[Rfam]
RNA sequence: ACAGCGCAAAAGCCGCGAGGCUCACACCGUACAGGACGCGUCGCGCGUCCGCCUUCGUGAGCGGGCUAAGGUCUGAGUAUUCCAGUCCCCCUCGACCGGUCCUAGCAGGGCCCUGGCCUCAGGCUAGCGCGACGUAUCAGAUAUACAGCUGCAUCCCUCGAGCCCGAAGAAGGAGUAACGUCCACACCGAUGUCGUGGCAGCUUCAAGGACCUCGGCGGCUUUGCUGACAGCACUGAAAUGCUGCCUGUGGGUGGGGUCUGGUUUUUGCAUGGCGAGUCGGUCGUGACACGGAAACGGAGGGAUGGGGUGUAGCUUUGGGACACGUCGCGGGGACAGGGCGGUCAUCUUGCGCGUACGUACUGGCUUACUCUCGUCGUCGCGGUGCUCGGCUUCGGCUUGAGUGCGCAGACGGGUGUGACGGGGUGUCGGUGUCCUCGGAAGGCAUCAACUGCAUUGGAUGACGAGAGUGGUUUAUGGCUACCGUGCGUGGAUGUCCGCCCAUCAGUUCACUUCGCGGCCCGCGAGGCUCGAUCCUCGCGGAACUCGAUUCAGACUACUCUUGCGCUGU
Numbered sequence: 001a002c003a004g005c006g007c008a009a010a011a012g013c014c015g016c017g018a019g020g021c022u023c024a025c026a027c028c029g030u031a032c033a034g035g036a037c038g039c040g041u042c043g044c045g046c047g048u049c050c051g052c053c054u055u056c057g058u059g060a061g062c063g064g065g066c067u068a069a070g071g072u073c074u075g076a077g078u079a080u081u082c083c084a085g086u087c088c089c090c091c092u093c094g095a096c097c098g099g100u101c102c103u104a105g106c107a108g109g110g111c112c113c114u115g116g117c118c119u120c121a122g123g124c125u126a127g128c129g130c131g132a133c134g135u136a137u138c139a140g141a142u143a144u145a146c147a148g149c150u151g152c153a154u155c156c157c158u159c160g161a162g163c164c165c166g167a168a169g170a171a172g173g174a175g176u177a178a179c180g181u182c183c184a185c186a187c188c189g190a191u192g193u194c195g196u197g198g199c200a201g202c203u204u205c206a207a208g209g210a211c212c213u214c215g216g217c218g219g220c221u222u223u224g225c226u227g228a229c230a231g232c233a234c235u236g237a238a239a240u241g242c243u244g245c246c247u248g249u250g251g252g253u254g255g256g257g258u259c260u261g262g263u264u265u266u267u268g269c270a271u272g273g274c275g276a277g278u279c280g281g282u283c284g285u286g287a288c289a290c291g292g293a294a295a296c297g298g299a300g301g302g303a304u305g306g307g308g309u310g311u312a313g314c315u316u317u318g319g320g321a322c323a324c325g326u327c328g329c330g331g332g333g334a335c336a337g338g339g340c341g342g343u344c345a346u347c348u349u350g351c352g353c354g355u356a357c358g359u360a361c362u363g364g365c366u367u368a369c370u371c372u373c374g375u376c377g378u379c380g381c382g383g384u385g386c387u388c389g390g391c392u393u394c395g396g397c398u399u400g401a402g403u404g405c406g407c408a409g410a411c412g413g414g415u416g417u418g419a420c421g422g423g424g425u426g427u428c429g430g431u432g433u434c435c436u437c438g439g440a441a442g443g444c445a446u447c448a449a450c451u452g453c454a455u456u457g458g459a460u461g462a463c464g465a466g467a468g469u470g471g472u473u474u475a476u477g478g479c480u481a482c483c484g485u486g487c488g489u490g491g492a493u494g495u496c497c498g499c500c501c502a503u504c505a506g507u508u509c510a511c512u513u514c515g516c517g518g519c520c521c522g523c524g525a526g527g528c529u530c531g532a533u534c535c536u537c538g539c540g541g542a543a544c545u546c547g548a549u550u551c552a553g554a555c556u557a558c559u560c561u562u563g564c565g566c567u568g569u
Stems, first nucleotide, its partner, number of pairs: 001569004007563003012519007020062005034050006073553005088333004098112005113127006129329007147315011520541007

This 569-nucleotide RNA from Rhodofomes roseus belongs to the Rfam family "Nuclear RNase P".
A search with the family's covariance model found it, with a score of 67 bits.
Lineage of the source: Eukaryota > Fungi > Dikarya > Polyporales > Rhodofomes.
The family is grouped with related families in Rfam's "RNaseP clan".